[Rfam]
Nucleotides: 136
Stems, first nucleotide, its partner, number of pairs: 004060006017047010028037002078127004087118002091114003095110002
Number, partner (000 for none) and nucleotide at each position: 001000u002000c003000a004060g005059c006058a007057g008056c009055a010000a011000c012000a013000a014000g015000a016000a017047a018046g019045c020044g021043u022042u023041c024040a025039a026038g027000u028037u029036g030000c031000a032000a033000g034000c035000u036029u037028a038026u039025u040024u041023g042022a043021g044020c045019g046018c047017u048000g049000a050000u051000a052000c053000a054000a055009u056008g057007c058006u059005g060004c061000u062000a063000u064000a065000c066000u067000a068000u069000a070000a071000u072000c073000a074000a075000g076000a077000u078127g079126c080125u081124a082000a083000g084000a085000a086000c087118a088117g089000u090000u091114c092113a093112g094000u095110u096109u097000u098000g099000c100000g101000u102000a103000g104000u105000c106000u107000a108000u109096a110095a111000u112093c113092u114091g115000u116000u117088c118087u119000a120000c121000a122000c123000g124081u125080g126079g127078c128000a129000u130000u131000a132000c133000a134000u135000a136000u